[Rfam]
RNA sequence: AAUUGAAAAGAGAUUCACCUUUGUAUAUGUCCAAGAAUAAGGCUUGGACGUUUCUACCAGGCUGCCGUAAAUAGCUUGACUACAGAGUGUGUGGACUUUCUG
Numbered sequence: 001a002a003u004u005g006a007a008a009a010g011a012g013a014u015u016c017a018c019c020u021u022u023g024u025a026u027a028u029g030u031c032c033a034a035g036a037a038u039a040a041g042g043c044u045u046g047g048a049c050g051u052u053u054c055u056a057c058c059a060g061g062c063u064g065c066c067g068u069a070a071a072u073a074g075c076u077u078g079a080c081u082a083c084a085g086a087g088u089g090u091g092u093g094g095a096c097u098u099u100c101u102g
Base pairs, nucleotide, nucleotide: 019087020086021085022084023083024082025081029049030048031047032046033045034044035043058078059077060076061075062074063073064072
Rfam assigns this 102-nucleotide RNA sequence from Bacillus thermotolerans to the family "Purine riboswitch aptamer".
The family's consensus secondary structure is taken from published work.
A search with the family's covariance model found it, with a score of 83 bits.
Taxonomically the source falls in Bacillus (Bacteria, Bacillati, Bacillota, Bacillaceae).